[Rfam]
RNA sequence: CCUUUGGAGAACUACAUCAAACGUAAGUAGCUUUUAGCAAACCCGGGUUCAAUGAAAAAGGAA
Numbered sequence: 001c002c003u004u005u006g007g008a009g010a011a012c013u014a015c016a017u018c019a020a021a022c023g024u025a026a027g028u029a030g031c032u033u034u035u036a037g038c039a040a041a042c043c044c045g046g047g048u049u050c051a052a053u054g055a056a057a058a059a060g061g062a063a
Stems, first nucleotide, its partner, number of pairs: 001061005009050005022045002030038003
RAGATH-18 RNA: a 63-nucleotide RNA from Clostridium manihotivorum. Lineage of the source: Bacteria > Bacillati > Clostridia > Clostridiaceae > Clostridium.